A member of the RNA family "A. fumigatus sRNA Afu_309" from Monosporascus sp. MG133, 284 nucleotides long. Rfam classes the family as a small RNA. Lineage of the source: Eukaryota > Opisthokonta > leotiomyceta > sordariomyceta > Monosporascus.

RNA sequence: UUCAUCACAAUAACCCACGGAUCUGUGCCCGAUAGUCCUCUGUUCGCUACGGUGAAUUCAGAGUCGACGGUCGUGGCAGCUGACUCCCUUCAUGGAAACAUCCCUUUUCUUUAUGAUGUAAAUCCGAGUCACAGGUCCCAGAGUAAAUGAGGCGUCUGGGAAGCUGAGCUCGCCGUAAAAAGCUGAGCUCGGUGGAACAGACGUCUUGUAGACGUUAUAUUCCUAACCGUUUUGCCAAGACCUUUGGUCUAUGAGGCUGGGGAAAACCAUAACACACUACAUCU
Numbered sequence: 001u002u003c004a005u006c007a008c009a010a011u012a013a014c015c016c017a018c019g020g021a022u023c024u025g026u027g028c029c030c031g032a033u034a035g036u037c038c039u040c041u042g043u044u045c046g047c048u049a050c051g052g053u054g055a056a057u058u059c060a061g062a063g064u065c066g067a068c069g070g071u072c073g074u075g076g077c078a079g080c081u082g083a084c085u086c087c088c089u090u091c092a093u094g095g096a097a098a099c100a101u102c103c104c105u106u107u108u109c110u111u112u113a114u115g116a117u118g119u120a121a122a123u124c125c126g127a128g129u130c131a132c133a134g135g136u137c138c139c140a141g142a143g144u145a146a147a148u149g150a151g152g153c154g155u156c157u158g159g160g161a162a163g164c165u166g167a168g169c170u171c172g173c174c175g176u177a178a179a180a181a182g183c184u185g186a187g188c189u190c191g192g193u194g195g196a197a198c199a200g201a202c203g204u205c206u207u208g209u210a211g212a213c214g215u216u217a218u219a220u221u222c223c224u225a226a227c228c229g230u231u232u233u234g235c236c237a238a239g240a241c242c243u244u245u246g247g248u249c250u251a252u253g254a255g256g257c258u259g260g261g262g263a264a265a266a267c268c269a270u271a272a273c274a275c276a277c278u279a280c281a282u283c284u
Base pairs, nucleotide, nucleotide: 019138020137021136022135023134024133025132026131027077028076029075030073031072032071035068036067037066038063039062040061041060042059044056045054046053047052082130083129084128085127086126093121095119097117099115149205150204153203154202155201156200157199158198164191166190167189168188169187170186171185172183173182211277214273215272216271217270218269227262228261230260231259234257235256236255239249240248241247242246